[Rfam]
RNA sequence: CCAGGGUGGUAGUGGCUGGGGGCAGCCCCAUGGUGGCAGUGG
Numbered sequence: 001c002c003a004g005g006g007u008g009g010u011a012g013u014g015g016c017u018g019g020g021g022g023c024a025g026c027c028c029c030a031u032g033g034u035g036g037c038a039g040u041g042g
Stems, first nucleotide, its partner, number of pairs: 001033003005029002
A member of the RNA family "Prion pseudoknot" from Sciurus carolinensis, 42 nucleotides long. Rfam's curators write: This family represents a predicted pseudoknot structure found in prion protein mRNA. It has been suggested that the family has a possible effect in prion protein translation. Rfam links the family to the GO term translation. The match comes from Rfam's covariance-model search (41 bits). The family's RNA type in Rfam is cis-regulatory element.